[Rfam]
RNA sequence: CGGGGAAAAGCAGACUCCCGGCCUAUCCGGAACAUCCGCUGUUCCGGCCAAGACGGUGUCCCGUCCAAGUCCUGC
Dot-bracket structure: (((((....[[[[..)))))...............................(((((....)))))......]]]]